[Rfam]
Shown here is a 99-nucleotide sequence from Neobacillus bataviensis, a member of the family "Guanidine-I riboswitch aptamer". Lineage of the source: Bacteria > Bacillati > Bacilli > Caryophanales > Neobacillus bataviensis. On this family, see Trachman RJ 3rd and Ferre-D'Amare, RNA 2021: "An uncommon [K(+)(Mg(2+))2] metal ion triad imparts stability and selectivity to the Guanidine-I riboswitch".
RNA sequence: UAGCUGGUUUUCUAGGGUUCCGUGGCUUAUUGCCAGUCUGGUCCGAGAGAAAACACACACUGUACGGUGUGGACACGGAAGGAUAAAAGCCUGGGAGAU
Numbered sequence: 001u002a003g004c005u006g007g008u009u010u011u012c013u014a015g016g017g018u019u020c021c022g023u024g025g026c027u028u029a030u031u032g033c034c035a036g037u038c039u040g041g042u043c044c045g046a047g048a049g050a051a052a053a054c055a056c057a058c059a060c061u062g063u064a065c066g067g068u069g070u071g072g073a074c075a076c077g078g079a080a081g082g083a084u085a086a087a088a089g090c091c092u093g094g095g096a097g098a099u
Stems, first nucleotide, its partner, number of pairs: 007054006015044002020041002022038001023035004056071006074094001076097001080092003